[Rfam]
RNA sequence: AUCCGCCUGGCUCCCUGUAUGCCAACUGCGAGCCUUGCUAAAUAUUUGUUUGCCUUGAUUCAUAGCUGGCGUUCAGGGAGUCAAGCAGAC
Numbered sequence: 001a002u003c004c005g006c007c008u009g010g011c012u013c014c015c016u017g018u019a020u021g022c023c024a025a026c027u028g029c030g031a032g033c034c035u036u037g038c039u040a041a042a043u044a045u046u047u048g049u050u051u052g053c054c055u056u057g058a059u060u061c062a063u064a065g066c067u068g069g070c071g072u073u074c075a076g077g078g079a080g081u082c083a084a085g086c087a088g089a090c
Stems, first nucleotide, its partner, number of pairs: 002089002005086002008083007016075002019072006027064002
RNA: mir-160 microRNA precursor family